[Rfam]
RNA sequence: AUUUAAUAUUAAAUAUUUCAUCGUAUAAUGUUGAGGAUAAGGCUCAAGAGUUUCUACCAGACCACCGGAUAUUUGGUCUGACUACGAUGGAACAGAAACUUUCU
Numbered sequence: 001a002u003u004u005a006a007u008a009u010u011a012a013a014u015a016u017u018u019c020a021u022c023g024u025a026u027a028a029u030g031u032u033g034a035g036g037a038u039a040a041g042g043c044u045c046a047a048g049a050g051u052u053u054c055u056a057c058c059a060g061a062c063c064a065c066c067g068g069a070u071a072u073u074u075g076g077u078c079u080g081a082c083u084a085c086g087a088u089g090g091a092a093c094a095g096a097a098a099c100u101u102u103c104u
Base pairs, nucleotide, nucleotide: 018090019089020088021087022086023085024084025083029049031047032046033045034044035043058080059079060078061077062076063075064074
This 104-nucleotide RNA sequence from Saliterribacillus persicus belongs to the Rfam family "Purine riboswitch aptamer". A search with the family's covariance model found it, with a score of 79 bits.